[Rfam]
RNA: CRISPR RNA direct repeat element
RNA sequence: AUUUCAAUCAACGCCCCGAGGAAGAGGGGAUUAAAAC
Numbered sequence: 001a002u003u004u005c006a007a008u009c010a011a012c013g014c015c016c017c018g019a020g021g022a023a024g025a026g027g028g029g030a031u032u033a034a035a036a037c
Base pairs, nucleotide, nucleotide: 014029015028016027017026